[Rfam]
RNA: Burkholderia sRNA Bp1_Cand738_SIPHT
Organism: Paraburkholderia phenazinium
RNA sequence: CGAAAAACCAGCGUCAGGUCGCGCUGGCGAGGACUGCAAAAAAGGCCGUCAAAUACCGUGCAGGGGGGUCGGUAAGCGGUGACGCGUUGCGUCGUAAGGACCGGGGGGCGGUGGUAAAAACGUUCACGCCCUGCAACCAAUGUGGACGGAUUCUAGCAGGGUUUAAUAGAUCGUCAACACUAUAGAACCGCAAAUGUAUAACUAAUUGUAA
Numbered sequence: 001c002g003a004a005a006a007a008c009c010a011g012c013g014u015c016a017g018g019u020c021g022c023g024c025u026g027g028c029g030a031g032g033a034c035u036g037c038a039a040a041a042a043a044g045g046c047c048g049u050c051a052a053a054u055a056c057c058g059u060g061c062a063g064g065g066g067g068g069u070c071g072g073u074a075a076g077c078g079g080u081g082a083c084g085c086g087u088u089g090c091g092u093c094g095u096a097a098g099g100a101c102c103g104g105g106g107g108g109c110g111g112u113g114g115u116a117a118a119a120a121c122g123u124u125c126a127c128g129c130c131c132u133g134c135a136a137c138c139a140a141u142g143u144g145g146a147c148g149g150a151u152u153c154u155a156g157c158a159g160g161g162u163u164u165a166a167u168a169g170a171u172c173g174u175c176a177a178c179a180c181u182a183u184a185g186a187a188c189c190g191c192a193a194a195u196g197u198a199u200a201a202c203u204a205a206u207u208g209u210a211a
Base pairs, nucleotide, nucleotide: 008027009026010025011024012023013022014021046114047113048112049111050110054074055073056072057071058070081093082092083091084090085089141179142178143177146174147173148172149171152170153169154168155167